[Rfam]
RNA: Bacterial RNase P class A
RNA sequence: UGAGUAAGCCAGACAGUCGCGUGCAUCGAAUGAUACACGAGGAAAGUCCGAGCUCCAUAGGGCAAGGGUGCCAGAUAACGUCUGGUGAAGGUGACUUUAAGGAAAGUGCAACAGAAACAUACCGCCGAUCAGCAUUUGCUGAGGUAAGGUUGAAAUGGUGAGGUAAGAGCUCACCGGCAGCAUGGUAACAUGCUGGCCGUGUAAACCCCACCCGGAGCAAGACCAAGUAGGGCGUAAAAGGCGGCUGCCCGUCGCUGCCCGGUAGGUAGGUCGCUUGAGCGUACUGGCGACAGUACGCCUAGAUAGAUGAUUGUCAAAUACAGAACUCGGCUUAUAGACUUGCUCACACU
Number, nucleotide and partner (000 for none) at each position: 001u346002g345003a344004g343005u342006a341007a340008g339009c000010c337011a335012g315013a314014c313015a312016g311017u310018c309019g000020c039021g038022u037023g036024c000025a034026u033027c032028g000029a000030a000031u000032g027033a026034u025035a000036c023037a022038c021039g020040a000041g000042g000043a000044a333045a332046g331047u000048c330049c329050g328051a327052g326053c217054u216055c215056c214057a000058u000059a000060g000061g250062g249063c000064a000065a000066g213067g212068g211069u210070g209071c085072c084073a083074g082075a081076u000077a000078a000079c000080g000081u075082c074083u073084g072085g071086u100087g098088a097089a096090g095091g000092u000093g000094a000095c090096u089097u088098u087099a000100a086101g208102g207103a000104a000105a000106g206107u205108g202109c201110a200111a000112c000113a000114g000115a000116a000117a000118c000119a000120u000121a000122c149123c148124g145125c144126c143127g000128a000129u142130c141131a140132g139133c138134a000135u000136u000137u000138g133139c132140u131141g130142a129143g126144g125145u124146a000147a000148g123149g122150u000151u000152g000153a000154a000155a000156u000157g175158g174159u173160g172161a171162g170163g000164u000165a000166a000167g000168a000169g000170c162171u161172c160173a159174c158175c157176g000177g197178c195179a194180g193181c192182a191183u190184g189185g000186u000187a000188a000189c184190a183191u182192g181193c180194u179195g178196g000197c177198c000199g000200u110201g109202u108203a000204a000205a107206c106207c102208c101209c070210a069211c068212c067213c066214g056215g055216a054217g053218c000219a000220a000221g272222a271223c270224c269225a000226a000227g000228u000229a000230g000231g263232g000233c261234g260235u000236a000237a000238a000239a000240g000241g255242c254243g253244g252245c251246u000247g000248c000249c062250c061251g245252u244253c243254g242255c241256u000257g000258c000259c000260c234261g233262g000263u231264a000265g000266g000267u000268a000269g224270g223271u222272c221273g000274c000275u000276u000277g000278a000279g298280c297281g296282u295283a294284c293285u292286g291287g000288c000289g000290a000291c286292a285293g284294u283295a282296c281297g280298c279299c000300u000301a000302g000303a000304u000305a000306g000307a000308u000309g018310a017311u016312u015313g014314u013315c012316a000317a000318a000319u000320a000321c000322a000323g000324a000325a000326c052327u051328c050329g049330g048331c046332u045333u044334a000335u011336a000337g010338a000339c008340u007341u006342g005343c004344u003345c002346a001347c000348a000349c000350u000